[Rfam]
RNA sequence: AAGUCAUGUGAUGAGAGAAAAUAACUGCAACAAAAUGAUCGAAUAUUUCUUCUUGAUUACUAUAGUAUUUAACUCUCUGAUGAUU
Numbered sequence: 001a002a003g004u005c006a007u008g009u010g011a012u013g014a015g016a017g018a019a020a021a022u023a024a025c026u027g028c029a030a031c032a033a034a035a036u037g038a039u040c041g042a043a044u045a046u047u048u049c050u051u052c053u054u055g056a057u058u059a060c061u062a063u064a065g066u067a068u069u070u071a072a073c074u075c076u077c078u079g080a081u082g083a084u085u
Stems, first nucleotide, its partner, number of pairs: 001085002004083003041052003
RNA: Small nucleolar RNA Z199
Organism: Nicotiana tabacum